[Rfam]
RNA sequence: UGGCGGGGGAGCACCACAAGGGGUGAAGCCUGCGGUUCAAUUGGAGUCAACGCCAGAAAUCUUACCCGGAGAGACAGCAGAAUGAAGGUCAAGCUGAAGACUUUACCAGACAAGCUGAGAGGUGGUGCAUGGCCGUCGCCAGCUCGUGCCGUGAGAUGUCCUGUUAAGUCAGGUAACGAGCGAGAUCCCUGCCACUAGUUGCUAUCAUUAUUCUCAGGAAUAGUGGGGCGAAUUAGUGGGACUGCCGUUGUUAAAACGGAGGAAGGAAGGGGCUACGGCAGGUCAGUAUGCCCCGAAACUCUGGGGCCACACGCGGGCUGCAAUGGUAGUGACAAUGAGUUCCAAACUCGAAAGAGAGUGGCAAUCUCUAAACGCUACCACAGUUAUGACUGAGGGCUGUAACUCGCCCUCACGAAUAUGGAAUCCCUAGUAACCGCGUGUCAUUACCGCGCGGUGAAUACGUCCCUGCUCCUUGCACACACCGCCCGUCGUUUCAUCGAAGUUUGCUUUUAGCGAGGUGAUGUUUAAUUGGCAUUAUCGAACUUGAGGUAAGCGACGAGGGAAAAGUCGUAACAAGG
Numbered sequence: 001u002g003g004c005g006g007g008g009g010a011g012c013a014c015c016a017c018a019a020g021g022g023g024u025g026a027a028g029c030c031u032g033c034g035g036u037u038c039a040a041u042u043g044g045a046g047u048c049a050a051c052g053c054c055a056g057a058a059a060u061c062u063u064a065c066c067c068g069g070a071g072a073g074a075c076a077g078c079a080g081a082a083u084g085a086a087g088g089u090c091a092a093g094c095u096g097a098a099g100a101c102u103u104u105a106c107c108a109g110a111c112a113a114g115c116u117g118a119g120a121g122g123u124g125g126u127g128c129a130u131g132g133c134c135g136u137c138g139c140c141a142g143c144u145c146g147u148g149c150c151g152u153g154a155g156a157u158g159u160c161c162u163g164u165u166a167a168g169u170c171a172g173g174u175a176a177c178g179a180g181c182g183a184g185a186u187c188c189c190u191g192c193c194a195c196u197a198g199u200u201g202c203u204a205u206c207a208u209u210a211u212u213c214u215c216a217g218g219a220a221u222a223g224u225g226g227g228g229c230g231a232a233u234u235a236g237u238g239g240g241a242c243u244g245c246c247g248u249u250g251u252u253a254a255a256a257c258g259g260a261g262g263a264a265g266g267a268a269g270g271g272g273c274u275a276c277g278g279c280a281g282g283u284c285a286g287u288a289u290g291c292c293c294c295g296a297a298a299c300u301c302u303g304g305g306g307c308c309a310c311a312c313g314c315g316g317g318c319u320g321c322a323a324u325g326g327u328a329g330u331g332a333c334a335a336u337g338a339g340u341u342c343c344a345a346a347c348u349c350g351a352a353a354g355a356g357a358g359u360g361g362c363a364a365u366c367u368c369u370a371a372a373c374g375c376u377a378c379c380a381c382a383g384u385u386a387u388g389a390c391u392g393a394g395g396g397c398u399g400u401a402a403c404u405c406g407c408c409c410u411c412a413c414g415a416a417u418a419u420g421g422a423a424u425c426c427c428u429a430g431u432a433a434c435c436g437c438g439u440g441u442c443a444u445u446a447c448c449g450c451g452c453g454g455u456g457a458a459u460a461c462g463u464c465c466c467u468g469c470u471c472c473u474u475g476c477a478c479a480c481a482c483c484g485c486c487c488g489u490c491g492u493u494u495c496a497u498c499g500a501a502g503u504u505u506g507c508u509u510u511u512a513g514c515g516a517g518g519u520g521a522u523g524u525u526u527a528a529u530u531g532g533c534a535u536u537a538u539c540g541a542a543c544u545u546g547a548g549g550u551a552a553g554c555g556a557c558g559a560g561g562g563a564a565a566a567g568u569c570g571u572a573a574c575a576a577g578g
Stems, first nucleotide, its partner, number of pairs: 001479002003476003007473007016463002020427005025321001027319008035310002041056004065305007075117004080111001087107003091103003121294002124292004130288002132283003135279004142181006148157001150155001160173004187271004192239007202228002206225007242262002245259005325379007337368003342361002347356003386417001391412007433455008482577001484574001487570002490567001492564004497559003502554009512544002517539009
Archaeal small subunit ribosomal RNA: a 578-nucleotide part of an RNA from uncultured marine crenarchaeote SAT1000-49-D2. For this family Rfam cites "Crystal structure of the ribosome at 5.5 A resolution" (Yusupov et al., Science, 2001). The family's consensus secondary structure is taken from published work. Gene Ontology terms of the family: ribosome and structural constituent of ribosome. NCBI's taxonomy places the organism under Archaea, Thermoproteati, Nitrososphaerota, Nitrososphaeria, Nitrosopumilales.